[Rfam]
RNA sequence: AGCUUUGUGCAGUGGCAGUAUCAUAGCCAGUGAGGUUUAUCUGAGGCAUGAUUACUGCUAAUUGUAAAUAGCGCUGCUAUGAACAUUGGGGUGCAUGUAUCUUUUUGAGUUAGAGUUUUCUCU
Numbered sequence: 001a002g003c004u005u006u007g008u009g010c011a012g013u014g015g016c017a018g019u020a021u022c023a024u025a026g027c028c029a030g031u032g033a034g035g036u037u038u039a040u041c042u043g044a045g046g047c048a049u050g051a052u053u054a055c056u057g058c059u060a061a062u063u064g065u066a067a068a069u070a071g072c073g074c075u076g077c078u079a080u081g082a083a084c085a086u087u088g089g090g091g092u093g094c095a096u097g098u099a100u101c102u103u104u105u106u107g108a109g110u111u112a113g114a115g116u117u118u119u120c121u122c123u
Stems, first nucleotide, its partner, number of pairs: 020052005026047003034042002075099003080095002083092002112123004
Dot-bracket structure: ...................(((((.(((.....((.....))..))))))))......................(((..((.((......)).)).)))............((((....))))
RNA: U4 spliceosomal RNA